[Rfam]
Background: This 80-nucleotide RNA from Flavobacterium psychrophilum belongs to the Rfam family "Flavo-1 RNA". The family has 201 seed sequences and 7,497 matches in Rfam 15.1. The source organism's lineage runs through Bacteria, Bacteroidota, Flavobacteriia, Flavobacteriaceae and Flavobacterium psychrophilum.

RNA sequence: UUUUAGCCCCGAUUGCAGUGGAAAUCCUUUUUUGAGGCUUUUCGCCGAUAAAAAGAUUGUAACGGAAAGCGGGAAAUAGC
Number, nucleotide and partner (000 for none) at each position: 001u000002u000003u000004u000005a000006g000007c000008c000009c072010c071011g070012a000013u068014u067015g000016c000017a000018g063019u062020g000021g000022a000023a058024a057025u056026c055027c000028u053029u052030u000031u000032u048033u047034g046035a000036g000037g045038c044039u000040u000041u000042u000043c000044g038045c037046c034047g033048a032049u000050a000051a000052a029053a028054a000055g026056a025057u024058u023059g000060u000061a000062a019063c018064g000065g000066a000067a014068a013069g000070c011071g010072g009073g000074a000075a000076a000077u000078a000079g000080c000